[Rfam]
RNA sequence: AUCAUACUUAAGGGGGCCAUAGAAGGAGCGUUCACGUCACGGCCCCUGUCAGGUAUCUGUUUACCUGUGAAUCCUUCU
Numbered sequence: 001a002u003c004a005u006a007c008u009u010a011a012g013g014g015g016g017c018c019a020u021a022g023a024a025g026g027a028g029c030g031u032u033c034a035c036g037u038c039a040c041g042g043c044c045c046c047u048g049u050c051a052g053g054u055a056u057c058u059g060u061u062u063a064c065c066u067g068u069g070a071a072u073c074c075u076u077c078u
Base pairs, nucleotide, nucleotide: 013046014045015044016043017042018041021078022077023076024075025074026073027072028040030038050067051066052065053064054063055062
A member of the RNA family "Mammalian CPEB3 ribozyme" from Laticauda laticaudata, 78 nucleotides long. The base pairs follow the family's consensus structure, which is taken from published work. Rfam describes the family as follows. The mammalian CPEB3 ribozyme is a self cleaving RNA located in the second intron of the CPEB3 gene which belongs to a family of genes regulating messenger RNA polyadenylation. The match comes from Rfam's covariance-model search (72 bits).